This 86-nucleotide RNA from Peptoclostridium acidaminophilum belongs to the Rfam family "c-di-GMP-I riboswitch aptamer".
A search with the family's covariance model found it, with a score of 82 bits.
About the family: GEMM was predicted in a large-scale screen for bacterial structured RNA regulatory elements.
RNA sequence: AUGUGACAAUGGCAAACCUGCUUAAAGGCAGGGACGCAAAGCUAUGGGUCUAAAGGGAUAAUCCCCAUGACUGCCAGGCUGCCGGA
Numbered sequence: 001a002u003g004u005g006a007c008a009a010u011g012g013c014a015a016a017c018c019u020g021c022u023u024a025a026a027g028g029c030a031g032g033g034a035c036g037c038a039a040a041g042c043u044a045u046g047g048g049u050c051u052a053a054a055g056g057g058a059u060a061a062u063c064c065c066c067a068u069g070a071c072u073g074c075c076a077g078g079c080u081g082c083c084g085g086a
Base pairs, nucleotide, nucleotide: 012037013036017032018031019030020029021028022027040080041079042078043077045076046075047074048071049070050069055065056064057063058062